[Rfam]
RNA sequence: CGAGUUGGUCAGACAAUCGCUGCUUUAUCGUUGUAUUUGAGUAAUCAAGUAGACAGGUAAAGGGGAGGAAAGUCCGGGCUCCAUAGAGCAGAGUGCCAGAUAACGUCUGGGGGGCGAAAGCCUACGACAAGUGCAGCAGAGAGAAGACCGCCUAAGUACUUCGGUACCGGUAAGGGUGAAAGGGUGCGGUAAGAGCGCACCGGGCCACUGGUAACAGUUGGUUGCAAGGUAAACUCCACUCGGAGCAAGACCAAAUAGGGUUUCGUAUGGCGUGGCUCGCGUUGAAACCGGGUAGGUUGCUUGAGCCUUAGAGUGAUUUAAGGCCUAGACGAAUGAUUGUCCCUUUUCUUAGGAAAAGUACAGAACCCGGCUUAUCGACCAACUCAACAC
Numbered sequence: 001c002g003a004g005u006u007g008g009u010c011a012g013a014c015a016a017u018c019g020c021u022g023c024u025u026u027a028u029c030g031u032u033g034u035a036u037u038u039g040a041g042u043a044a045u046c047a048a049g050u051a052g053a054c055a056g057g058u059a060a061a062g063g064g065g066a067g068g069a070a071a072g073u074c075c076g077g078g079c080u081c082c083a084u085a086g087a088g089c090a091g092a093g094u095g096c097c098a099g100a101u102a103a104c105g106u107c108u109g110g111g112g113g114g115c116g117a118a119a120g121c122c123u124a125c126g127a128c129a130a131g132u133g134c135a136g137c138a139g140a141g142a143g144a145a146g147a148c149c150g151c152c153u154a155a156g157u158a159c160u161u162c163g164g165u166a167c168c169g170g171u172a173a174g175g176g177u178g179a180a181a182g183g184g185u186g187c188g189g190u191a192a193g194a195g196c197g198c199a200c201c202g203g204g205c206c207a208c209u210g211g212u213a214a215c216a217g218u219u220g221g222u223u224g225c226a227a228g229g230u231a232a233a234c235u236c237c238a239c240u241c242g243g244a245g246c247a248a249g250a251c252c253a254a255a256u257a258g259g260g261u262u263u264c265g266u267a268u269g270g271c272g273u274g275g276c277u278c279g280c281g282u283u284g285a286a287a288c289c290g291g292g293u294a295g296g297u298u299g300c301u302u303g304a305g306c307c308u309u310a311g312a313g314u315g316a317u318u319u320a321a322g323g324c325c326u327a328g329a330c331g332a333a334u335g336a337u338u339g340u341c342c343c344u345u346u347u348c349u350u351a352g353g354a355a356a357a358g359u360a361c362a363g364a365a366c367c368c369g370g371c372u373u374a375u376c377g378a379c380c381a382a383c384u385c386a387a388c389a390c
Stems, first nucleotide, its partner, number of pairs: 002385009011375001012341007020065002023062006070373003074370005079245004086278004091241005096110005111125001112123004126236002131234002133230002148175002150171003156167004183201006202225001203223005208217003249298004259289006269283005305324008
Dot-bracket structure: .(((((((((((((((((.((.((((((............................)))))).))....[[[.[[[[[((((...[[[[.((((((((((.....)))))(((((....)))).)((...((((.............(((((...((((....)))).)))..)).......((((((.......))))))(((((((((....))).))))).)...))..)))))))))))))...((((......((((((....(((((.]]]]))))))))))).....))))......((((((((....))))))))..........)))))))........................]]]]]]]].).))))))))).....
RNA: Bacterial RNase P class A
Organism: Thalassotalea sp. LPB0316